[Rfam]
RNA sequence: UGAUAGCGAAGAAGCGAGAGGUUGCCAUCCGAUGGAUGGGUUUUCCGUGGAGCGAAUGUCAAGAGACCGUAGAUCAGCAUAUCACGGUCGGUAAACCUGACGGCAA
Number, nucleotide and partner (000 for none) at each position: 001u000002g000003a000004u000005a000006g000007c000008g000009a000010a000011g000012a000013a000014g048015c047016g046017a000018g045019a044020g043021g042022u000023u000024g000025c039026c038027a037028u036029c035030c000031g000032a000033u000034g000035g029036a028037u027038g026039g025040g000041u000042u021043u020044u019045c018046c016047g015048u014049g000050g000051a000052g000053c000054g000055a000056a000057u105058g104059u103060c102061a000062a000063g000064a000065g089066a088067c087068c086069g085070u084071a000072g000073a000074u000075c000076a000077g000078c000079a000080u000081a000082u000083c000084a070085c069086g068087g067088u066089c065090g000091g000092u000093a000094a000095a000096c000097c000098u000099g000100a000101c000102g060103g059104c058105a057106a000
Rfam assigns this 106-nucleotide sequence to the family "S10-Clostridia ribosomal protein leader".